Overview:
Shown here is a 139-nucleotide RNA sequence from Mus spicilegus, a member of the family "Small nucleolar RNA SNORA43". Gene Ontology terms of the family: nucleolus and RNA processing. It is annotated as an H/ACA-box small nucleolar RNA. The organism belongs to Mus, within Eukaryota. Its Rfam clan is "SNORA17 clan". From the family's description: ACA43 is a member of the H/ACA class of snoRNA that guide the sites of modification of uridines to pseudouridines.
RNA sequence: GCUGUCCUAGAUCAGCACCACAGACCUGGCCUAGCUGCUCAGCUCUGCCUGUGACAUUGGGGCAAAGAGCAAGUGGCUCUUUCUAUGCUCAGUGUCCAGAAGCCAGUGAGCACUAAGAAUGGUUUAUAGCCUGACAUUU
Numbered sequence: 001g002c003u004g005u006c007c008u009a010g011a012u013c014a015g016c017a018c019c020a021c022a023g024a025c026c027u028g029g030c031c032u033a034g035c036u037g038c039u040c041a042g043c044u045c046u047g048c049c050u051g052u053g054a055c056a057u058u059g060g061g062g063c064a065a066a067g068a069g070c071a072a073g074u075g076g077c078u079c080u081u082u083c084u085a086u087g088c089u090c091a092g093u094g095u096c097c098a099g100a101a102g103c104c105a106g107u108g109a110g111c112a113c114u115a116a117g118a119a120u121g122g123u124u125u126a127u128a129g130c131c132u133g134a135c136a137u138u139u
Stems, first nucleotide, its partner, number of pairs: 003064008020052004075131003083122003088117002093112003097108002